Shown here is a 122-nucleotide RNA sequence from Equus asinus, a member of the family "U4atac minor spliceosomal RNA".
The source organism's lineage runs through Eukaryota, Bilateria, Teleostomi, Equidae and Equus.
The match comes from Rfam's covariance-model search (55 bits).
About the family: U4atac is an essential component of the minor U12-type spliceosome complex which is required for removal of the rarer class of eukaryotic introns (AT-AC, U12-type).
Rfam links the family to the GO terms mRNA 5'-splice site recognition, U4atac snRNP and pre-mRNA 5'-splice site binding.
The family's RNA type in Rfam is spliceosomal small nuclear RNA.
The family is grouped with related families in Rfam's "U4 clan".
RNA sequence: ACCAUUCUUUCCUUGGGGUGGUGUGCUGUCCAGCGAGUACACAGGGAGGGCAGUACUGCGAACAUCACACACCACACUCACAUCAACCAGCUCUGCUUCACCUUGGUGCAAUUUUUAGGAAA
Numbered sequence: 001a002c003c004a005u006u007c008u009u010u011c012c013u014u015g016g017g018g019u020g021g022u023g024u025g026c027u028g029u030c031c032a033g034c035g036a037g038u039a040c041a042c043a044g045g046g047a048g049g050g051c052a053g054u055a056c057u058g059c060g061a062a063c064a065u066c067a068c069a070c071a072c073c074a075c076a077c078u079c080a081c082a083u084c085a086a087c088c089a090g091c092u093c094u095g096c097u098u099c100a101c102c103u104u105g106g107u108g109c110a111a112u113u114u115u116u117a118g119g120a121a122a
Stems, first nucleotide, its partner, number of pairs: 006018004020059001023056001025054007038044001081108005089097003